int-alpA RNA: a 70-nucleotide RNA from Zoogloea dura. Rfam 15.1 lists 577 matches to the family in 491 species. NCBI's taxonomy places the organism under Bacteria, Pseudomonadati, Rhodocyclales, Zoogloeaceae, Zoogloea. The family's consensus secondary structure is taken from published work.
RNA sequence: GCCGCGCCUAGGUCGGCCAACCGAAAACGGGGACACCAUCCCCCCGCUGGCGCGGCACCUUAUUCGAUGG
Numbered sequence: 001g002c003c004g005c006g007c008c009u010a011g012g013u014c015g016g017c018c019a020a021c022c023g024a025a026a027a028c029g030g031g032g033a034c035a036c037c038a039u040c041c042c043c044c045c046g047c048u049g050g051c052g053c054g055g056c057a058c059c060u061u062a063u064u065c066g067a068u069g070g
Base pairs, nucleotide, nucleotide: 001056002055003054004053005052006051007050008049011022012021013020028046029045030044031043032042036070037069038068039067040066